[Rfam]
RNA sequence: AUACUCACCUGGCAGGGGAGCCAUCAUGAUCAUGAAGGUGGUUUUCCCAGAGUGAGGCUAAUGGACUCUGGAUGUGCUCUCCCCUGAAAUUUCCCCAAAUGUGGGAAAUUCAACUGCACAGUUUGAGGUAGUCAGGGACUGUGUUCAUGCUUUCCCCCA
Dot-bracket structure: ...........(((((((((..(((((..........))))).)))))((.(.(.(((..((.........))..)))..)).))...((((.((.......)).))).)...)))).................((((..(((....)))..))))...
Numbered sequence: 001a002u003a004c005u006c007a008c009c010u011g012g013c014a015g016g017g018g019a020g021c022c023a024u025c026a027u028g029a030u031c032a033u034g035a036a037g038g039u040g041g042u043u044u045u046c047c048c049a050g051a052g053u054g055a056g057g058c059u060a061a062u063g064g065a066c067u068c069u070g071g072a073u074g075u076g077c078u079c080u081c082c083c084c085u086g087a088a089a090u091u092u093c094c095c096c097a098a099a100u101g102u103g104g105g106a107a108a109u110u111c112a113a114c115u116g117c118a119c120a121g122u123u124u125g126a127g128g129u130a131g132u133c134a135g136g137g138a139c140u141g142u143g144u145u146c147a148u149g150c151u152u153u154c155c156c157c158c159a
Stems, first nucleotide, its partner, number of pairs: 012117004016048005023042005049085002052082001054081001056078003061073002089110001090108003094104002135156004141150003

Record summary
Rfam assigns this 159-nucleotide RNA sequence from Otolemur garnettii to the family "U1 spliceosomal RNA". About the family: U1 is a small nuclear RNA (snRNA) component of the spliceosome (involved in pre-mRNA splicing). Its Rfam clan is "U1 clan".